[Rfam]
Rfam assigns this 149-nucleotide sequence from Gossypium arboreum to the family "MIR8643 microRNA precursor family".
RNA sequence: AUGUCUUUUAACAUAUUAAGAAGUCGAAUUGGCAAUGAAAAAAGAAGCAGGAAGUCAAAAGCCAUCGCUGCCUAUAAUCAAAACUCAUAAACCCGUACCAUGAUUCUUUCUUCACUACCAAUUCGACUUCCUGAUAUGUUAAAAGAAAU
Numbered sequence: 001a002u003g004u005c006u007u008u009u010a011a012c013a014u015a016u017u018a019a020g021a022a023g024u025c026g027a028a029u030u031g032g033c034a035a036u037g038a039a040a041a042a043a044g045a046a047g048c049a050g051g052a053a054g055u056c057a058a059a060a061g062c063c064a065u066c067g068c069u070g071c072c073u074a075u076a077a078u079c080a081a082a083a084c085u086c087a088u089a090a091a092c093c094c095g096u097a098c099c100a101u102g103a104u105u106c107u108u109u110c111u112u113c114a115c116u117a118c119c120a121a122u123u124c125g126a127c128u129u130c131c132u133g134a135u136a137u138g139u140u141a142a143a144a145g146a147a148a149u
Stems, first nucleotide, its partner, number of pairs: 004146015020130012034116001036114004041109006048102002051099001056095001

A search with the family's covariance model found it, with a score of 156 bits.